[Rfam]
RNA: mir-204 microRNA precursor family
Organism: Hymenochirus boettgeri
RNA sequence: CUGGGGCCAAUGGGUUUCCCUUUGUCAUCCUAUGCCUGUGAAUGCUGUUAAGGCAAGGAAAGCAAGGGGAUGCUCAAAUGUCACCUUC
Numbered sequence: 001c002u003g004g005g006g007c008c009a010a011u012g013g014g015u016u017u018c019c020c021u022u023u024g025u026c027a028u029c030c031u032a033u034g035c036c037u038g039u040g041a042a043u044g045c046u047g048u049u050a051a052g053g054c055a056a057g058g059a060a061a062g063c064a065a066g067g068g069g070a071u072g073c074u075c076a077a078a079u080g081u082c083a084c085c086u087u088c
Stems, first nucleotide, its partner, number of pairs: 017070006024063002028059004034054004
Dot-bracket structure: ................((((((.((..((((..((((.............)))).))))..)).))))))..................